About this RNA:
The family of this 89-nucleotide RNA from Clostridium taeniosporum is "Glycine riboswitch aptamer". The family has 44 seed sequences and 9,425 matches in Rfam 15.1. The base pairs follow the family's consensus structure. Rfam's curators write: This family represents the bacterial glycine riboswitch. Glycine riboswitches usually consist of two metabolite-binding aptamers domains with similar structures in tandem.

RNA sequence: ACGAAGGUAGUGGGAGAGUGAUUACUAUAAAACUUAUAGCAAUACACCGAAGAGGGAAAUCUUUCAGGUAUUAGGACCGCUACUGGACG
Numbered sequence: 001a002c003g004a005a006g007g008u009a010g011u012g013g014g015a016g017a018g019u020g021a022u023u024a025c026u027a028u029a030a031a032a033c034u035u036a037u038a039g040c041a042a043u044a045c046a047c048c049g050a051a052g053a054g055g056g057a058a059a060u061c062u063u064u065c066a067g068g069u070a071u072u073a074g075g076a077c078c079g080c081u082a083c084u085g086g087a088c089g
Stems, first nucleotide, its partner, number of pairs: 006084008021043003046069003049065002053063003
Dot-bracket structure: .....((((((((.......(((.................)))..(((((..(((.....))))).))).......)))))))).....